[Rfam]
RNA sequence: GGAUUGAUGAAGAGAACAAUUGUCUGAGGAUGCUGAGGGACUCUUUCUAGAUAGCAAUCUGAGGUCC
Numbered sequence: 001g002g003a004u005u006g007a008u009g010a011a012g013a014g015a016a017c018a019a020u021u022g023u024c025u026g027a028g029g030a031u032g033c034u035g036a037g038g039g040a041c042u043c044u045u046u047c048u049a050g051a052u053a054g055c056a057a058u059c060u061g062a063g064g065u066c067c
Base pairs, nucleotide, nucleotide: 001067002066003065004064005063

Annotation
This 67-nucleotide sequence from Spermophilus dauricus belongs to the Rfam family "Small nucleolar RNA SNORD109A". From the family's description: Humans have two copies of the SNORD109 gene, SNORD109A and SNORD109B. Its Rfam clan is "SNORD74 clan". The source organism's lineage runs through Eukaryota, Vertebrata, Amniota, Sciuridae and Spermophilus. Its family is annotated with RNA processing and nucleolus in the Gene Ontology.